[Rfam]
RNA sequence: GGUAUGAUACCGCUGCCAGCCCGCGCUGCGAUUUUACUGAGGCGGGCGGCCUGUGUCGGUCUGACACAGUACAUCUUCAUAACCGGUUUUU
Number, nucleotide and partner (000 for none) at each position: 001g000002g000003u000004a000005u000006g000007a000008u000009a000010c000011c000012g000013c000014u000015g050016c049017c048018a000019g047020c046021c045022c044023g043024c042025g000026c041027u040028g000029c000030g000031a000032u000033u000034u000035u000036a000037c000038u000039g000040a027041g026042g024043c023044g022045g021046g020047c019048g017049g016050c015051c069052u068053g067054u066055g065056u064057c000058g000059g000060u000061c000062u000063g000064a056065c055066a054067c053068a052069g051070u000071a000072c000073a000074u000075c000076u000077u000078c000079a000080u000081a000082a000083c000084c000085g000086g000087u000088u000089u000090u000091u000

The record is a 91-nucleotide RNA from Pantoea sp. aB, which matches "Peptidase-S11 RNA" in Rfam. Rfam's curators put it in the seed alignment.